[Rfam]
RNA sequence: GUCUCCGAUGAUGUAUUUUUUACCUUCAUUCUUUUGAAGUUUCAAUGUAGCUAGAAUAAUGUUUUGGACCCCGAACUGAGGGGUU
Numbered sequence: 001g002u003c004u005c006c007g008a009u010g011a012u013g014u015a016u017u018u019u020u021u022a023c024c025u026u027c028a029u030u031c032u033u034u035u036g037a038a039g040u041u042u043c044a045a046u047g048u049a050g051c052u053a054g055a056a057u058a059a060u061g062u063u064u065u066g067g068a069c070c071c072c073g074a075a076c077u078g079a080g081g082g083g084u085u
Stems, first nucleotide, its partner, number of pairs: 003083004

Small nucleolar RNA Z159/U59: an 85-nucleotide RNA sequence from Leersia perrieri. The family's consensus secondary structure was predicted with PFOLD. NCBI's taxonomy places the organism under Eukaryota, Magnoliopsida, Mesangiospermae, Oryzinae, Leersia. On this family, see Chen et al., Nucleic Acids Res 2003: "The high diversity of snoRNAs in plants: identification and comparative study of 120 snoRNA genes from Oryza sativa". It scores 56 bits against the family's covariance model. The family has 10 seed sequences and 1,401 matches in Rfam 15.1. Rfam classes the family as a C/D-box small nucleolar RNA.